[Rfam]
RNA sequence: AUCUUGGUGCAAGGGUAAUACAUACAGCAGUGAGGAUUCGUCCGAGCUUAUGUUUCUGCUGGUUGAAAACUAUAAUGUUUGACCACUCCUGUCAUGACUUUACUUUGGCAGGGAAUAUUUGGAAUCACACCUUCUCGUG
Number, nucleotide and partner (000 for none) at each position: 001a000002u000003c000004u000005u000006g000007g000008u000009g000010c000011a000012a000013g000014g000015g000016u000017a000018a000019u000020a053021c052022a051023u050024a049025c000026a048027g047028c046029a000030g000031u000032g000033a000034g043035g042036a041037u000038u000039c000040g000041u036042c035043c034044g000045a000046g028047c027048u026049u024050a023051u022052g021053u020054u000055u000056c000057u000058g000059c000060u000061g000062g000063u000064u000065g000066a000067a000068a000069a000070c000071u000072a000073u000074a000075a000076u000077g000078u000079u000080u000081g000082a000083c000084c000085a000086c000087u113088c112089c111090u110091g109092u108093c107094a106095u000096g101097a000098c000099u000100u000101u096102a000103c000104u000105u000106u094107g093108g092109c091110a090111g089112g088113g087114a000115a000116u000117a000118u000119u000120u000121g000122g000123a000124a000125u000126c139127a138128c137129a000130c000131c000132u000133u000134c000135u000136c000137g128138u127139g126
Description
Rfam assigns this 139-nucleotide RNA sequence from Lachnellula arida to the family "U4 spliceosomal RNA". The family's RNA type in Rfam is spliceosomal small nuclear RNA. The match comes from Rfam's covariance-model search (86 bits). The family's consensus secondary structure is taken from published work. NCBI's taxonomy places the organism under Eukaryota, saccharomyceta, Leotiomycetes, Helotiales, Lachnellula.